[Rfam]
RNA sequence: GGUAAUGGUCAGCUUUGCAGGGUGGGCAGUCAGCUUUCAUCAGAAUUGCUGUGCAAACCCAUGCAAAACUGACUGGGCCU
Numbered sequence: 001g002g003u004a005a006u007g008g009u010c011a012g013c014u015u016u017g018c019a020g021g022g023u024g025g026g027c028a029g030u031c032a033g034c035u036u037u038c039a040u041c042a043g044a045a046u047u048g049c050u051g052u053g054c055a056a057a058c059c060c061a062u063g064c065a066a067a068a069c070u071g072a073c074u075g076g077g078c079c080u
Base pairs, nucleotide, nucleotide: 006075007074008073009072010071011070012069014067015066016065017064018063019062020060021059023056026054027053028052032050033049034048